Rfam assigns this 269-nucleotide sequence from Carnegiea gigantea to the family "RNase MRP".
For this family Rfam cites "Secondary structure of RNase MRP RNA as predicted by phylogenetic comparison" (Schmitt et al., FASEB J, 1993).
The family's consensus secondary structure is taken from published work.

[Rfam]
RNA sequence: AUUGCGGGUUGAAGUGGGUGGGCCUCGAAGCCGCAUACUGUGGAUUUCUUGGGCCCAGGAAAGUCCCCGGGCCGUCUGCCACAGAGAUGUGGGCCUGGAAACGGGUUGUCUCUGAGUCGUGGCCCAUUUCUGCAACUCUUGUAGAACGGCUGAGACGAGGUUUGGAGCCUAAGUGGGCCUCCACCAGAGACUAAUUGGCCGAUGGUAUACAGUUAUCCACUUGGGCUCUAGCCAGCCUAACCUAACCGAACGGGGCUUACAACUUGCGA
Numbered sequence: 001a002u003u004g005c006g007g008g009u010u011g012a013a014g015u016g017g018g019u020g021g022g023c024c025u026c027g028a029a030g031c032c033g034c035a036u037a038c039u040g041u042g043g044a045u046u047u048c049u050u051g052g053g054c055c056c057a058g059g060a061a062a063g064u065c066c067c068c069g070g071g072c073c074g075u076c077u078g079c080c081a082c083a084g085a086g087a088u089g090u091g092g093g094c095c096u097g098g099a100a101a102c103g104g105g106u107u108g109u110c111u112c113u114g115a116g117u118c119g120u121g122g123c124c125c126a127u128u129u130c131u132g133c134a135a136c137u138c139u140u141g142u143a144g145a146a147c148g149g150c151u152g153a154g155a156c157g158a159g160g161u162u163u164g165g166a167g168c169c170u171a172a173g174u175g176g177g178c179c180u181c182c183a184c185c186a187g188a189g190a191c192u193a194a195u196u197g198g199c200c201g202a203u204g205g206u207a208u209a210c211a212g213u214u215a216u217c218c219a220c221u222u223g224g225g226c227u228c229u230a231g232c233c234a235g236c237c238u239a240a241c242c243u244a245a246c247c248g249a250a251c252g253g254g255g256c257u258u259a260c261a262a263c264u265u266g267c268g269a
Stems, first nucleotide, its partner, number of pairs: 002269007012222006020056004031043005061258003065255004080091004092107006132191001137188003141184002144181002147176001149174002159169004224242002227239001